[Rfam]
RNA sequence: CGACCCUCUGAUUUAAGGGUCACCUAGCCAACUGACGUUGUUAGUGAACACCUCUUGUUCACACGUUAUAUAGCCAAUCGCCUUGUUUUCGCGAUUGGCUUUUUUCUU
Dot-bracket structure: .(((((..........))))).................(((..(((((((.....))))))).....)))...((((((((.........))))))))..........
RNA: Qrr RNA
Organism: Vibrio mediterranei